[Rfam]
U2 spliceosomal RNA: a 169-nucleotide sequence from Nicotiana tabacum. By type it is a spliceosomal small nuclear RNA. The family is grouped with related families in Rfam's "U2 clan". The source organism's lineage runs through Eukaryota, Streptophyta, eudicotyledons, Nicotianoideae and Nicotiana. The match comes from Rfam's covariance-model search (68 bits).
RNA sequence: AUAUCUUUCUGGGCCUUUAGGCUAAAAUCAAAUGUAGUCUCGGUUUGAUAUUUGAUAUGUGGGUCAUUGACUCAUACGAUAUUAACUUAAUUUUUUAAGGAAGGCCCGUGAGAUAGCUUGCUACUCGGGCCUUUGCGCAUCGCCCAUGCAUUGCACUGUGAAAAUAGUU
Numbered sequence: 001a002u003a004u005c006u007u008u009c010u011g012g013g014c015c016u017u018u019a020g021g022c023u024a025a026a027a028u029c030a031a032a033u034g035u036a037g038u039c040u041c042g043g044u045u046u047g048a049u050a051u052u053u054g055a056u057a058u059g060u061g062g063g064u065c066a067u068u069g070a071c072u073c074a075u076a077c078g079a080u081a082u083u084a085a086c087u088u089a090a091u092u093u094u095u096u097a098a099g100g101a102a103g104g105c106c107c108g109u110g111a112g113a114u115a116g117c118u119u120g121c122u123a124c125u126c127g128g129g130c131c132u133u134u135g136c137g138c139a140u141c142g143c144c145c146a147u148g149c150a151u152u153g154c155a156c157u158g159u160g161a162a163a164a165u166a167g168u169u
Stems, first nucleotide, its partner, number of pairs: 008027001010025001012023004038057001040055004059075007100134008114123003144167001146165002